Record summary: The record is a 73-nucleotide RNA sequence, which matches "RAGATH-18 RNA" in Rfam. It is annotated as a small RNA. The sequence is in the family's curated seed alignment.
[Rfam]
RNA sequence: CCUAUGGAGAGUACAAGAACUUGUGAGUAGAUAGAUAUUUAUAUCGUCAAAAGCAUACUCGUUGAAGUAGGAA
Numbered sequence: 001c002c003u004a005u006g007g008a009g010a011g012u013a014c015a016a017g018a019a020c021u022u023g024u025g026a027g028u029a030g031a032u033a034g035a036u037a038u039u040u041a042u043a044u045c046g047u048c049a050a051a052a053g054c055a056u057a058c059u060c061g062u063u064g065a066a067g068u069a070g071g072a073a
Stems, first nucleotide, its partner, number of pairs: 001071005009060005022055003030048003034045002